[Rfam]
RNA: Small nucleolar RNA SNORD103/SNORD85
Organism: Oriolus oriolus
Nucleotides: 088
Base pairs, nucleotide, nucleotide: 001088002087003086004085005084006083
Number, partner (000 for none) and nucleotide at each position: 001088u002087c003086u004085g005084g006083c007000a008000g009000u010000g011000a012000u013000g014000c015000c016000a017000c018000a019000c020000u021000u022000g023000c024000c025000c026000u027000c028000a029000c030000u031000g032000a033000g034000a035000g036000c037000u038000c039000g040000c041000u042000u043000c044000g045000g046000u047000g048000a049000u050000g051000a052000g053000c054000c055000u056000c057000u058000c059000c060000c061000u062000c063000c064000g065000c066000g067000c068000g069000c070000u071000c072000g073000g074000a075000g076000c077000a078000g079000c080000u081000g082000a083006g084005c085004c086003a087002g088001a